The record is an 86-nucleotide RNA from Branchiostoma floridae, which matches "mir-4899 microRNA precursor family" in Rfam.
Rfam links the family to the GO terms RISC complex and miRNA-mediated post-transcriptional gene silencing.
The base pairs follow the family's consensus structure, which was predicted with RNAalifold.

[Rfam]
Nucleotides: 086
Stems, first nucleotide, its partner, number of pairs: 015071008025061002028059006036050002
Number, partner (000 for none) and nucleotide at each position: 001000u002000u003000a004000g005000a006000g007000a008000c009000u010000a011000g012000u013000a014000a015071c016070u017069c018068c019067c020066u021065c022064a023000c024000a025061a026060c027000g028059g029058g030057c031056c032055a033054g034000c035000u036050g037049a038000a039000c040000a041000c042000u043000u044000u045000u046000a047000u048000g049037u050036c051000u052000u053000c054033c055032u056031g057030g058029u059028c060026g061025u062000a063000u064022u065021g066020a067019g068018g069017g070016a071015g072000a073000g074000a075000a076000a077000a078000a079000u080000g081000u082000u083000u084000u085000c086000c